Overview: The record is an 80-nucleotide RNA sequence, which matches "skipping-rope RNA" in Rfam. The sequence is in the family's curated seed alignment. Pairs were carried over by alignment from the consensus structure, which is taken from published work. It is annotated as a small RNA.
RNA sequence: GUUAUUUGAGGAUAGAACAGGCAGCUAUCACGCCCUUGGGGUCUUAAAAGAGAUGCCGGAGUGCCGUCCGGUUGAAUAAC
Numbered sequence: 001g002u003u004a005u006u007u008g009a010g011g012a013u014a015g016a017a018c019a020g021g022c023a024g025c026u027a028u029c030a031c032g033c034c035c036u037u038g039g040g041g042u043c044u045u046a047a048a049a050g051a052g053a054u055g056c057c058g059g060a061g062u063g064c065c066g067u068c069c070g071g072u073u074g075a076a077u078a079a080c
Stems, first nucleotide, its partner, number of pairs: 001080008011029005020065004031050001032042004055072005